[Rfam]
RNA sequence: AGAACCUUUAAAUCCAGUCCCGUGAGGCUGGCAAGGGCACGGAUACAAGCAUGGACAAAAGAGAAUGGGGCUCUGCCGCUUUUCUUCUGUCAUGCCCAGUGGCUUCUUGUCAACCGGCAAGAAGCUUUUUUUCAU
Numbered sequence: 001a002g003a004a005c006c007u008u009u010a011a012a013u014c015c016a017g018u019c020c021c022g023u024g025a026g027g028c029u030g031g032c033a034a035g036g037g038c039a040c041g042g043a044u045a046c047a048a049g050c051a052u053g054g055a056c057a058a059a060a061g062a063g064a065a066u067g068g069g070g071c072u073c074u075g076c077c078g079c080u081u082u083u084c085u086u087c088u089g090u091c092a093u094g095c096c097c098a099g100u101g102g103c104u105u106c107u108u109g110u111c112a113a114c115c116g117g118c119a120a121g122a123a124g125c126u127u128u129u130u131u132u133c134a135u
Stems, first nucleotide, its partner, number of pairs: 005036004014031006050094004055090003059086006098129002101126010

A member of the RNA family "PyrR binding site" from Brevibacillus borstelensis, 135 nucleotides long.
The family's consensus secondary structure is taken from published work.
The match comes from Rfam's covariance-model search (58 bits).
Lineage of the source: Bacteria > Bacillati > Bacilli > Brevibacillus > Brevibacillus borstelensis.